Description:
This 196-nucleotide sequence from Shewanella gelidii belongs to the Rfam family "Lysine riboswitch aptamer".
RNA sequence: CUGAGAAGUAGAGGCGCACCAAAUAUUAGUAGCGGUUAGUAGGGUGAUACCGACGAUCCACCGUAAAAGGAUUUGGUGCCGAAGUGACAAGUCUAUCGAAACUUGUUGCUGGGGCUGUUACCGAAAAGGUACAGCACUGCCAUAGUAGAGCUUAUCGUCUUGAUAAGUAUUUUAACUAUGGAGCGCUACUGAAAGG
Numbered sequence: 001c002u003g004a005g006a007a008g009u010a011g012a013g014g015c016g017c018a019c020c021a022a023a024u025a026u027u028a029g030u031a032g033c034g035g036u037u038a039g040u041a042g043g044g045u046g047a048u049a050c051c052g053a054c055g056a057u058c059c060a061c062c063g064u065a066a067a068a069g070g071a072u073u074u075g076g077u078g079c080c081g082a083a084g085u086g087a088c089a090a091g092u093c094u095a096u097c098g099a100a101a102c103u104u105g106u107u108g109c110u111g112g113g114g115c116u117g118u119u120a121c122c123g124a125a126a127a128g129g130u131a132c133a134g135c136a137c138u139g140c141c142a143u144a145g146u147a148g149a150g151c152u153u154a155u156c157g158u159c160u161u162g163a164u165a166a167g168u169a170u171u172u173u174a175a176c177u178a179u180g181g182a183g184c185g186c187u188a189c190u191g192a193a194a195g196g
Base pairs, nucleotide, nucleotide: 007190008189009188010187011186016079017078018077019076020075021074022073023072024071032064033063034062035061036060039057083110084109085108086107087106088105089104090103091102092101094099111138112137114135115134116133117132118131121128140181141180142179143178144177145176146175
Background:
For this family Rfam cites "Riboswitches Control Fundamental Biochemical Pathways in Bacillus subtilis and Other Bacteria" (Mandal et al., Cell, 2003).